[Rfam]
RNA: Mammalian CPEB3 ribozyme
Organism: Alligator mississippiensis
RNA sequence: AGGUCAUAAGUUUGAGGGCAUAGCAGAAGCAAUCAUGGUGCAGCCAUAUCAGAUUCCAACAAAUCUGCAAAUUCUGCU
Numbered sequence: 001a002g003g004u005c006a007u008a009a010g011u012u013u014g015a016g017g018g019c020a021u022a023g024c025a026g027a028a029g030c031a032a033u034c035a036u037g038g039u040g041c042a043g044c045c046a047u048a049u050c051a052g053a054u055u056c057c058a059a060c061a062a063a064u065c066u067g068c069a070a071a072u073u074c075u076g077c078u
Base pairs, nucleotide, nucleotide: 013046016045017044022078023077024076025075026074027073028072029041030040031039050067051066052065053064054063055062